The family of this 79-nucleotide sequence from Actinoplanes sp. TBRC 11911 is "c-di-GMP-I riboswitch aptamer". The match comes from Rfam's covariance-model search (54 bits). The base pairs follow the family's consensus structure, which is taken from published work. The source organism's lineage runs through Bacteria, Actinomycetota, Actinomycetes, Micromonosporaceae and Actinoplanes. Rfam's curators write: GEMM was predicted in a large-scale screen for bacterial structured RNA regulatory elements. Genes associated with GEMM are involved in a diverse array of functions, including chemotaxis regulation, signal transduction, secretion and chitin.
RNA sequence: UACCCGAACAGGCAUACCCGUCGCGAGACGGGGACGCAAAGCCAGGGGCCUCCCCGCCGGAGGCAGCCCAGCCGCCGAA
Numbered sequence: 001u002a003c004c005c006g007a008a009c010a011g012g013c014a015u016a017c018c019c020g021u022c023g024c025g026a027g028a029c030g031g032g033g034a035c036g037c038a039a040a041g042c043c044a045g046g047g048g049c050c051u052c053c054c055c056g057c058c059g060g061a062g063g064c065a066g067c068c069c070a071g072c073c074g075c076c077g078a079a
Stems, first nucleotide, its partner, number of pairs: 012037002017032006041072002045069003048064006